[Rfam]
RNA sequence: GAAUUCCUGCCCCCGCAAGGGCCAGCCACCCACGGGGAAGCGAGCCUUGGGUCGUCAACCGCGAGGUUGAUGGCUAAGCGUAGGCAGCGCGACGACCAGGCCGCAGCCCAAAAGGGCGAAGGGAUCGAGCCUCGUUACGGUUAUGGACCGAGGGCCGACGGUGUCGGAAUGGCCGGAAGGCAACAGUACGCGCUCGGUAGGGCGAGAGCGCGGGAGACCUCGGCGGGGUCGGAGACCG
Numbered sequence: 001g002a003a004u005u006c007c008u009g010c011c012c013c014c015g016c017a018a019g020g021g022c023c024a025g026c027c028a029c030c031c032a033c034g035g036g037g038a039a040g041c042g043a044g045c046c047u048u049g050g051g052u053c054g055u056c057a058a059c060c061g062c063g064a065g066g067u068u069g070a071u072g073g074c075u076a077a078g079c080g081u082a083g084g085c086a087g088c089g090c091g092a093c094g095a096c097c098a099g100g101c102c103g104c105a106g107c108c109c110a111a112a113a114g115g116g117c118g119a120a121g122g123g124a125u126c127g128a129g130c131c132u133c134g135u136u137a138c139g140g141u142u143a144u145g146g147a148c149c150g151a152g153g154g155c156c157g158a159c160g161g162u163g164u165c166g167g168a169a170u171g172g173c174c175g176g177a178a179g180g181c182a183a184c185a186g187u188a189c190g191c192g193c194u195c196g197g198u199a200g201g202g203c204g205a206g207a208g209c210g211c212g213g214g215a216g217a218c219c220u221c222g223g224c225g226g227g228g229u230c231g232g233a234g235a236c237c238g
Stems, first nucleotide, its partner, number of pairs: 012036004019031003025203002040088002044085004048080002050075011126232001127230001129229006148223006154181003159175004187216001189212007
RNA: Group II catalytic intron D1-D4-6
Organism: Limnochorda pilosa